RNA sequence: UGGCGGCCAACGUGGGACUGGAUACUGGGGGUAUUGUGAGGGAGGAAAGAAAAAGGAAGGAGCGCGCUCGCUAAAUCUCAAGCAAUUUGGAGAUAGGCCACGGGAGCCUGUCGUGACCGAACCGAAGGUAAGUUGUGCCGACCGAUCAUGGGGCAAGGAUUAAGCCAGCAUCAGAUUUAUGUUACGCAGUUGAGGGAGGCUCUCAAGACAAGAAGAGUAAAGGUUAAGACUGUGGAUUUAUUUCAUUUCUUUGAUUUUGUGAAGGACAUUUGUCCGU
Dot-bracket structure: ......((...(((........)))..))....((.(.......).))......................................((.....(.(..(((((.......)))))..)..).....)).......(((...(((....))).)))......(.(((...............................)))..)........((((((...(((((.........))))).......)))))).........(.((((....)))).)
RNA: Mason-Pfizer monkey virus packaging signal
Organism: Nannospalax galili